[Rfam]
RNA sequence: CGAAUCAUGACGGGAGAGUCCGGCAGGUCCACGUGACCGGGUCGGCGCCGAAGGAGCAAUCCCUCCCCGGGAAUCUCUCAGGCCCCCGUACCGUCAUGGCGAG
Dot-bracket structure: .....((((((((......((((..................)))).(((((..(((...((.......))....))))).))).......)))))))).....
Numbered sequence: 001c002g003a004a005u006c007a008u009g010a011c012g013g014g015a016g017a018g019u020c021c022g023g024c025a026g027g028u029c030c031a032c033g034u035g036a037c038c039g040g041g042u043c044g045g046c047g048c049c050g051a052a053g054g055a056g057c058a059a060u061c062c063c064u065c066c067c068c069g070g071g072a073a074u075c076u077c078u079c080a081g082g083c084c085c086c087c088g089u090a091c092c093g094u095c096a097u098g099g100c101g102a103g
Stems, first nucleotide, its partner, number of pairs: 006098008020045004047083003050079002054077003060070002